This 110-nucleotide RNA from Brassica rapa belongs to the Rfam family "Small nucleolar RNA Z107/R87". It is annotated as a C/D-box small nucleolar RNA. The family's consensus secondary structure was predicted with RNAfold. Lineage of the source: Eukaryota > eudicotyledons > Pentapetalae > Brassicales > Brassica.

RNA sequence: AAAGGCAGUGACGACUCGGAAAAUAUCAAGCUCAACAGACCGGAAUGAGUCGUUUCUUCCUUAACCGGAGAUUCGUUUCUGUGUCGAUAAUCCCGCUGAACUGAGCCUUC
Numbered sequence: 001a002a003a004g005g006c007a008g009u010g011a012c013g014a015c016u017c018g019g020a021a022a023a024u025a026u027c028a029a030g031c032u033c034a035a036c037a038g039a040c041c042g043g044a045a046u047g048a049g050u051c052g053u054u055u056c057u058u059c060c061u062u063a064a065c066c067g068g069a070g071a072u073u074c075g076u077u078u079c080u081g082u083g084u085c086g087a088u089a090a091u092c093c094c095g096c097u098g099a100a101c102u103g104a105g106c107c108u109u110c
Base pairs, nucleotide, nucleotide: 002109003108004107005106006105